[Rfam]
Rubella virus 3' cis-acting element: a 64-nucleotide sequence from Bemisia tabaci. The organism belongs to Bemisia, within Eukaryota. This family represents a cis-acting element found at the 3' UTR in the rubella virus. This family contains three conserved step loop structures. For this family Rfam cites "Mutagenic analysis of the 3' cis-acting elements of the rubella virus genome" (Chen and Frey, J Virol, 1999). The family's RNA type in Rfam is cis-regulatory element. The match comes from Rfam's covariance-model search (35 bits).
RNA sequence: UGCCCGCCCGCCGUUGCCACGGCGGGCGGGCGGCCAGCGCGAAACGCGCACUGGCGCCUACAAA
Numbered sequence: 001u002g003c004c005c006g007c008c009c010g011c012c013g014u015u016g017c018c019a020c021g022g023c024g025g026g027c028g029g030g031c032g033g034c035c036a037g038c039g040c041g042a043a044a045c046g047c048g049c050a051c052u053g054g055c056g057c058c059u060a061c062a063a064a
Stems, first nucleotide, its partner, number of pairs: 001032004006027009033057002037049003